[Rfam]
RNA: mir-306 microRNA precursor family
Organism: Diatraea saccharalis
RNA sequence: GCGCGGUGCCAGGUACUAGGUGACUCUGAGUGGCGCGCGGUCUCAGAGCCGCCUCGUGCCUCAGCACCGCGC
Numbered sequence: 001g002c003g004c005g006g007u008g009c010c011a012g013g014u015a016c017u018a019g020g021u022g023a024c025u026c027u028g029a030g031u032g033g034c035g036c037g038c039g040g041u042c043u044c045a046g047a048g049c050c051g052c053c054u055c056g057u058g059c060c061u062c063a064g065c066a067c068c069g070c071g072c
Base pairs, nucleotide, nucleotide: 001072002071003070004069005068006067007066008065009064011061012060013059014058015057016056019053020052021051022050024048025047026046027045028044029043030038031037032036